[Rfam]
RNA sequence: CAGUUUCCUGUUUCAACAGUGCUUGGAGGGAACCUG
Numbered sequence: 001c002a003g004u005u006u007c008c009u010g011u012u013u014c015a016a017c018a019g020u021g022c023u024u025g026g027a028g029g030g031a032a033c034c035u036g
Stems, first nucleotide, its partner, number of pairs: 001036003005032004012027005017021001

Shown here is a 36-nucleotide RNA sequence from Propithecus coquereli, a member of the family "Iron response element I". The match comes from Rfam's covariance-model search (37 bits). The family has 62 seed sequences and 6,829 matches in Rfam 15.1. Rfam classes the family as a cis-regulatory element. Its family is annotated with response to iron ion in the Gene Ontology. Pairs were carried over by alignment from the consensus structure, which is taken from published work.